[Rfam]
RNA sequence: CUCUGGAGAGUUUCUCUUACAUAGAGAACACCAAAGGGGAAGCCGGGAACGGCGAAUCUCUCAGGUUCAAGGACAGAG
Numbered sequence: 001c002u003c004u005g006g007a008g009a010g011u012u013u014c015u016c017u018u019a020c021a022u023a024g025a026g027a028a029c030a031c032c033a034a035a036g037g038g039g040a041a042g043c044c045g046g047g048a049a050c051g052g053c054g055a056a057u058c059u060c061u062c063a064g065g066u067u068c069a070a071g072g073a074c075a076g077a078g
Base pairs, nucleotide, nucleotide: 001078002077003076004075005074012028013027014026015025030066031065032064034061037060038059039058042053043052